The record is a 127-nucleotide RNA from Theobroma cacao, which matches "U11 spliceosomal RNA" in Rfam. The organism belongs to Theobroma, within Eukaryota. The family's RNA type in Rfam is spliceosomal small nuclear RNA. The family's consensus secondary structure is taken from published work.
RNA sequence: UAUUUGGGUUGGUUGGCUAAAUAUGCCACGUCCACCCUUAUCUGGUGGGGGCUGUAUGCUAUCAGGGCAUAUGGCCGACAUAAUUUGUGGAAUUCGAAUAGAGUUGGUUCGCUUGAUCGACCUUCUU
Numbered sequence: 001u002a003u004u005u006g007g008g009u010u011g012g013u014u015g016g017c018u019a020a021a022u023a024u025g026c027c028a029c030g031u032c033c034a035c036c037c038u039u040a041u042c043u044g045g046u047g048g049g050g051g052c053u054g055u056a057u058g059c060u061a062u063c064a065g066g067g068c069a070u071a072u073g074g075c076c077g078a079c080a081u082a083a084u085u086u087g088u089g090g091a092a093u094u095c096g097a098a099u100a101g102a103g104u105u106g107g108u109u110c111g112c113u114u115g116a117u118c119g120a121c122c123u124u125c126u127u
Base pairs, nucleotide, nucleotide: 008079009078010077011076012075014028015027016026017025029051031049032048033047034046035045036044052074053073054072055071056070057069058068100123101122103121104120105119106118107117109116110115